Source information
Mammalian CPEB3 ribozyme: a 76-nucleotide RNA from Alligator sinensis. The match comes from Rfam's covariance-model search (48 bits). Rfam describes the family as follows. The mammalian CPEB3 ribozyme is a self cleaving RNA located in the second intron of the CPEB3 gene which belongs to a family of genes regulating messenger RNA polyadenylation.
RNA sequence: GGUUGCAAGUUUGAGGCCACAGCAGAGGUGCUCAUAGCACAGCCUGGCAGAUUUUAACAAAUCUGCAAAUUCUGCU
Numbered sequence: 001g002g003u004u005g006c007a008a009g010u011u012u013g014a015g016g017c018c019a020c021a022g023c024a025g026a027g028g029u030g031c032u033c034a035u036a037g038c039a040c041a042g043c044c045u046g047g048c049a050g051a052u053u054u055u056a057a058c059a060a061a062u063c064u065g066c067a068a069a070u071u072c073u074g075c076u
Stems, first nucleotide, its partner, number of pairs: 015044003021076007028040003048065007